[Rfam]
RNA sequence: AAAAGCGACAGCGGGAGAGGCUGGUCGAGGGGGCGCUGUCAGGCAUGACGGCGGUCGCGGGCACCAGCGCCGAAGGAGCAACCGCCCCGGAAACUCUCAGGCAAAAGGACCGCUUCGCUUCG
Numbered sequence: 001a002a003a004a005g006c007g008a009c010a011g012c013g014g015g016a017g018a019g020g021c022u023g024g025u026c027g028a029g030g031g032g033g034c035g036c037u038g039u040c041a042g043g044c045a046u047g048a049c050g051g052c053g054g055u056c057g058c059g060g061g062c063a064c065c066a067g068c069g070c071c072g073a074a075g076g077a078g079c080a081a082c083c084g085c086c087c088c089g090g091a092a093a094c095u096c097u098c099a100g101g102c103a104a105a106a107g108g109a110c111c112g113c114u115u116c117g118c119u120u121c122g
Stems, first nucleotide, its partner, number of pairs: 006117003010114005021067004069102003072098002076096003082090002